A member of the RNA family "Ruegeria cis52 sRNA" from Frigidibacter albus, 177 nucleotides long.
It scores 96 bits against the family's covariance model.
The base pairs follow the family's consensus structure, which was predicted with RNAfold.
It is annotated as a small RNA.
Lineage of the source: Bacteria > Pseudomonadati > Alphaproteobacteria > Rhodobacterales > Frigidibacter.
The family has 2 seed sequences and 277 matches in Rfam 15.1.
For this family Rfam cites "Experimental Identification of Small Non-Coding RNAs in the Model Marine Bacterium Ruegeria pomeroyi DSS-3" (Rivers et al., Front Microbiol, 2016).

RNA sequence: UGCGCAGCGCAUGGCGCACCACCACGCGGCCAAAGCUGGCGCCCUUCAGCCGGGCGGUGCGGAUAUAUUGCGCCGUCAUCACCUCGGACAUGCUGGCGCGGGUCAUGCGGGCGAUAUAGCCCAUGCCGUAAAGCGCGAUGGUCAGCACCGGCAGGAAGAAAUUCUCGAAGGUGAUGC
Numbered sequence: 001u002g003c004g005c006a007g008c009g010c011a012u013g014g015c016g017c018a019c020c021a022c023c024a025c026g027c028g029g030c031c032a033a034a035g036c037u038g039g040c041g042c043c044c045u046u047c048a049g050c051c052g053g054g055c056g057g058u059g060c061g062g063a064u065a066u067a068u069u070g071c072g073c074c075g076u077c078a079u080c081a082c083c084u085c086g087g088a089c090a091u092g093c094u095g096g097c098g099c100g101g102g103u104c105a106u107g108c109g110g111g112c113g114a115u116a117u118a119g120c121c122c123a124u125g126c127c128g129u130a131a132a133g134c135g136c137g138a139u140g141g142u143c144a145g146c147a148c149c150g151g152c153a154g155g156a157a158g159a160a161a162u163u164c165u166c167g168a169a170g171g172u173g174a175u176g177c
Stems, first nucleotide, its partner, number of pairs: 005140002008137003012133001014127001016126003026122001028120001040111001042109001046105001048103001050101003054097001055075008082096002145177003148173001151172002154165004